A member of the RNA family "c-di-GMP-I-GGC riboswitch aptamer" from Paraliobacillus quinghaiensis, 104 nucleotides long. The organism belongs to Paraliobacillus, within Bacteria. The family's consensus secondary structure is taken from published work. On this family, see Kulshina et al., Nat Struct Mol Biol 2009: "Recognition of the bacterial second messenger cyclic diguanylate by its cognate riboswitch".
RNA sequence: AAUGAAAAAGGCAAACUAUUUGAAAAGAUAGGACGCAAAGUCAUGGGUCUAAGGUAUUGGUUUUAUUUUCCAAACCAAUACUAUUGAUUGCCAGACUACCAAAA
Number, nucleotide and partner (000 for none) at each position: 001a000002a000003u101004g100005a000006a000007a000008a000009a000010g000011g036012c035013a000014a000015a000016c031017u030018a029019u028020u027021u026022g000023a000024a000025a000026a021027g020028a019029u018030a017031g016032g000033a000034c090035g012036c011037a000038a000039a097040g096041u095042c094043a000044u093045g092046g091047g088048u087049c086050u000051a000052a000053g000054g000055u000056a000057u000058u000059g000060g000061u000062u000063u000064u000065a000066u000067u000068u000069u000070c000071c000072a000073a000074a000075c000076c000077a000078a000079u000080a000081c000082u000083a000084u000085u000086g049087a048088u047089u000090g034091c046092c045093a044094g042095a041096c040097u039098a000099c000100c004101a003102a000103a000104a000